[Rfam]
This 125-nucleotide sequence from Jaculus jaculus belongs to the Rfam family "Small nucleolar RNA SNORA27". From the family's description: ACA27 is a member of the H/ACA class of snoRNA that guide the sites of modification of uridines to pseudouridines. The match comes from Rfam's covariance-model search (122 bits). Rfam links the family to the GO terms RNA processing and nucleolus.
RNA sequence: GUACCCCCUUUCACUUUGCCAAUUGGACUUGUCUUUGUUGGCCAUUCAAGUGGGGCAAAGGAAAUACCUUUAUAAAACCCAGGCAAACUUAGUGUUUGUCUUGUAGCUUGUCAAGGGAAACAUUG
Numbered sequence: 001g002u003a004c005c006c007c008c009u010u011u012c013a014c015u016u017u018g019c020c021a022a023u024u025g026g027a028c029u030u031g032u033c034u035u036u037g038u039u040g041g042c043c044a045u046u047c048a049a050g051u052g053g054g055g056c057a058a059a060g061g062a063a064a065u066a067c068c069u070u071u072a073u074a075a076a077a078c079c080c081a082g083g084c085a086a087a088c089u090u091a092g093u094g095u096u097u098g099u100c101u102u103g104u105a106g107c108u109u110g111u112c113a114a115g116g117g118a119a120a121c122a123u124u125g
Stems, first nucleotide, its partner, number of pairs: 030057005038049004067117005080103001081101008

The family's RNA type in Rfam is H/ACA-box small nucleolar RNA.